Rfam assigns this 93-nucleotide RNA from Loxodonta africana to the family "mir-217 microRNA precursor family". It scores 90 bits against the family's covariance model. The organism belongs to Loxodonta, within Eukaryota.
[Rfam]
RNA sequence: GAGUUUUUGACGUUGCAGGUACUGCAUCAGGAACUGAUCGGUUAAGUAUCCGUCACUGUCAAUUCCUAAUGCGCUGCCUUCAGCAUCUAAACA
Numbered sequence: 001g002a003g004u005u006u007u008u009g010a011c012g013u014u015g016c017a018g019g020u021a022c023u024g025c026a027u028c029a030g031g032a033a034c035u036g037a038u039c040g041g042u043u044a045a046g047u048a049u050c051c052g053u054c055a056c057u058g059u060c061a062a063u064u065c066c067u068a069a070u071g072c073g074c075u076g077c078c079u080u081c082a083g084c085a086u087c088u089a090a091a092c093a
Stems, first nucleotide, its partner, number of pairs: 023073005029067005035061003039058003
For this family Rfam cites "Vertebrate microRNA genes" (Lim et al., Science, 2003).